Cyano-1 RNA: a 64-nucleotide sequence. It is annotated as a small RNA.
RNA sequence: UUACUUGUGAGGAGAAACGCUCACGGGGUGGAAACAAGGACACACCCCCGCAGAGUUUUCGAAG
Numbered sequence: 001u002u003a004c005u006u007g008u009g010a011g012g013a014g015a016a017a018c019g020c021u022c023a024c025g026g027g028g029u030g031g032a033a034a035c036a037a038g039g040a041c042a043c044a045c046c047c048c049c050g051c052a053g054a055g056u057u058u059u060c061g062a063a064g
Base pairs, nucleotide, nucleotide: 016059017058019056020055021054022053025049026048027047028045029044030043